[Rfam]
RNA sequence: GUGCAUUCUAGGCUUGUUUUAAGUUGCCUGCGAUAUUUUUAAAAACACAGGCAGCUAAAGCAAGUCUGGGACGCAG
Dot-bracket structure: ..((.(((.(((((((((((.(((((((((.(.............).)))))))))))))))))))).))).))..